Rfam assigns this 115-nucleotide RNA sequence to the family "Plastid-psbA-1 3UTR RNA".
Plastid psbA-1 is a non-coding RNA (ncRNA) present in plastids.
The family's RNA type in Rfam is cis-regulatory element.
The literature on the family includes a 2023 paper in Plant Commun by Richter et al., "Retrograde signaling in plants: A critical review focusing on the GUN pathway and beyond".
Pairs were carried over by alignment from the consensus structure, which was predicted with LocARNA.

[Rfam]
RNA sequence: GUUGAAGCUCCAUCUACAAAUGGCUAGGACUUCGGUCUUAGUGUAAAUGAGUCGUUGAACUUGCAGGAGAAAUACCCAACUUCUUUACAUAACAAGAAUUUGGGUAUUACUCCUG
Numbered sequence: 001g002u003u004g005a006a007g008c009u010c011c012a013u014c015u016a017c018a019a020a021u022g023g024c025u026a027g028g029a030c031u032u033c034g035g036u037c038u039u040a041g042u043g044u045a046a047a048u049g050a051g052u053c054g055u056u057g058a059a060c061u062u063g064c065a066g067g068a069g070a071a072a073u074a075c076c077c078a079a080c081u082u083c084u085u086u087a088c089a090u091a092a093c094a095a096g097a098a099u100u101u102g103g104g105u106a107u108u109a110c111u112c113c114u115g
Base pairs, nucleotide, nucleotide: 010023011022012021013020064115065114066113067112068111069110071108072107073106074105075104077102078101079100081098082097083096084095085094